The record is a 106-nucleotide RNA sequence from Nocardia pseudobrasiliensis, which matches "mraW RNA" in Rfam. The family's consensus secondary structure is taken from published work. The family has 45 seed sequences and 851 matches in Rfam 15.1. The source organism's lineage runs through Bacteria, Bacillati, Mycobacteriales, Nocardiaceae and Nocardia. The family's RNA type in Rfam is cis-regulatory element.
RNA sequence: CGAGGCGAGUGCCCUGCGGCCUCUGCCCGACGACGGACCCUGACGUACUUCCCCAACGCCAGGUGCCGUCGUUCGGUCAGAGACCACGGGGCAUUCCCCACCGACG
Dot-bracket structure: .........(((((((.((.(((((.((((((((((..((((.(((.........))).))))..)))))).)))).))))).)).))))))).............